[Rfam]
RNA: Flavo-1 RNA
Organism: Polaribacter porphyrae
RNA sequence: CUUGCGUUAGCGAUUGCAGUGGCAUCCUUUUUUUGUGUCAGUUCGAGUAAUUUUUCUGAUGAAAGAAGAAAAAUUAUAUCGAGAACACACUAAAAAAGAUAAAACGAAAAGCGCGACCUGAA
Number, nucleotide and partner (000 for none) at each position: 001c000002u000003u000004g000005c000006g000007u000008u000009a000010g114011c113012g112013a000014u110015u109016g000017c000018a000019g105020u104021g000022g000023c000024a100025u099026c098027c000028u000029u000030u095031u094032u093033u092034u000035g090036u089037g088038u000039c000040a000041g000042u000043u000044c000045g000046a000047g000048u000049a000050a000051u000052u000053u000054u000055u000056c000057u000058g000059a000060u000061g000062a000063a000064a000065g000066a000067a000068g000069a000070a000071a000072a000073a000074u000075u000076a000077u000078a000079u000080c000081g000082a000083g000084a000085a000086c000087a000088c037089a036090c035091u000092a033093a032094a031095a030096a000097a000098g026099a025100u024101a000102a000103a000104a020105c019106g000107a000108a000109a015110a014111g000112c012113g011114c010115g000116a000117c000118c000119u000120g000121a000122a000